[Rfam]
RNA sequence: UGUCCCCUGCGGUGUUCGUCAGAUCCAUAAUUCUUUGAACCGAUAAGCUAAGGCUUAGGUUGCGACCCUUGAUGUUACUGUUGUGCGCAUCCCCUGCGGAUGUACCUGAUGUAACUGGGAAGCGGCCCUCUUGAACCCAGGUUCAAGAUAUUGGGUCAACGGCACAGGCGGGGGGCUU
Numbered sequence: 001u002g003u004c005c006c007c008u009g010c011g012g013u014g015u016u017c018g019u020c021a022g023a024u025c026c027a028u029a030a031u032u033c034u035u036u037g038a039a040c041c042g043a044u045a046a047g048c049u050a051a052g053g054c055u056u057a058g059g060u061u062g063c064g065a066c067c068c069u070u071g072a073u074g075u076u077a078c079u080g081u082u083g084u085g086c087g088c089a090u091c092c093c094c095u096g097c098g099g100a101u102g103u104a105c106c107u108g109a110u111g112u113a114a115c116u117g118g119g120a121a122g123c124g125g126c127c128c129u130c131u132u133g134a135a136c137c138c139a140g141g142u143u144c145a146a147g148a149u150a151u152u153g154g155g156u157c158a159a160c161g162g163c164a165c166a167g168g169c170g171g172g173g174g175g176c177u178u
Stems, first nucleotide, its partner, number of pairs: 002176009012165004017161003032148003036145006058127003062123002066119002069117001074115005083105002088102005
RNA: 6S / SsrS RNA
Organism: Gallionellaceae bacterium